[Rfam]
RNA sequence: GAGCGUGAACACGGGAGCCCGGCGCGCGGGCUGAGAGGGGACCAAGUCGCGGUCCCGACCGUCGAACCUGAUCCGGGUCAUGCCGGCGCAGGGAGUGGGGUGACGUCGAAC
Numbered sequence: 001g002a003g004c005g006u007g008a009a010c011a012c013g014g015g016a017g018c019c020c021g022g023c024g025c026g027c028g029g030g031c032u033g034a035g036a037g038g039g040g041a042c043c044a045a046g047u048c049g050c051g052g053u054c055c056c057g058a059c060c061g062u063c064g065a066a067c068c069u070g071a072u073c074c075g076g077g078u079c080a081u082g083c084c085g086g087c088g089c090a091g092g093g094a095g096u097g098g099g100g101u102g103a104c105g106u107c108g109a110a111c
Stems, first nucleotide, its partner, number of pairs: 006099001009096002011062004017031005038056005067092004073086004
Rfam assigns this 111-nucleotide RNA to the family "TPP riboswitch aptamer (THI element)". The match comes from Rfam's covariance-model search (61 bits).